[Rfam]
RNA: SAM (S-adenosyl methionine) riboswitch aptamer
RNA sequence: GGUCACGAGACCCGGUGACAAGCGCUGGCUAGCCGGGCAGCAACCCUCCGACCGCGGUGGGGUGCUCCAGCUGACGACCCGGCCCCGUCCGCCGGACGGGGCAAGAGCGGCCC
Numbered sequence: 001g002g003u004c005a006c007g008a009g010a011c012c013c014g015g016u017g018a019c020a021a022g023c024g025c026u027g028g029c030u031a032g033c034c035g036g037g038c039a040g041c042a043a044c045c046c047u048c049c050g051a052c053c054g055c056g057g058u059g060g061g062g063u064g065c066u067c068c069a070g071c072u073g074a075c076g077a078c079c080c081g082g083c084c085c086c087g088u089c090c091g092c093c094g095g096a097c098g099g100g101g102c103a104a105g106a107g108c109g110g111c112c113c
Stems, first nucleotide, its partner, number of pairs: 001079004009038001011037006021030002039066003044062003048057002082102009
Dot-bracket structure: ((((....(.((((((....((......)).)))))))(((..(((.((......))..))).))).........))))..(((((((((...)))))))))...........